Shown here is a 238-nucleotide RNA sequence from Streptomyces sp. SID3343, a member of the family "Actinobacteria sRNA Ms_IGR-5".
The match comes from Rfam's covariance-model search (84 bits).
Rfam classes the family as a small RNA.
Taxonomically the source falls in Streptomyces (Bacteria, Actinomycetota, Kitasatosporales, Streptomycetaceae).
RNA sequence: ACACGGGAGAGGAGGUGGUUCGAAGUUGAGUAGCAUUCGGACGCGUGAGGUGGCUGCCCGCUAGCCGCCAUUCCGGUUUACCGGCUCGGCUCGCCCCGUCGUGUGUGCACCGCGACGGACGCAGGCAGGCGGCCGGCAACACCAGGCAGACACCCGACCCGCAGGUCGCCGGGAUCGUCCCCCGGCCUUUGUUCCCCUCACCGAGGAGAUCAAAGAAGCGACCUGCGGGUCGUUGUCG
Numbered sequence: 001a002c003a004c005g006g007g008a009g010a011g012g013a014g015g016u017g018g019u020u021c022g023a024a025g026u027u028g029a030g031u032a033g034c035a036u037u038c039g040g041a042c043g044c045g046u047g048a049g050g051u052g053g054c055u056g057c058c059c060g061c062u063a064g065c066c067g068c069c070a071u072u073c074c075g076g077u078u079u080a081c082c083g084g085c086u087c088g089g090c091u092c093g094c095c096c097c098g099u100c101g102u103g104u105g106u107g108c109a110c111c112g113c114g115a116c117g118g119a120c121g122c123a124g125g126c127a128g129g130c131g132g133c134c135g136g137c138a139a140c141a142c143c144a145g146g147c148a149g150a151c152a153c154c155c156g157a158c159c160c161g162c163a164g165g166u167c168g169c170c171g172g173g174a175u176c177g178u179c180c181c182c183c184g185g186c187c188u189u190u191g192u193u194c195c196c197c198u199c200a201c202c203g204a205g206g207a208g209a210u211c212a213a214a215g216a217a218g219c220g221a222c223c224u225g226c227g228g229g230u231c232g233u234u235g236u237c238g
Stems, first nucleotide, its partner, number of pairs: 014058006060137003064133002067130003072125002155232013168186006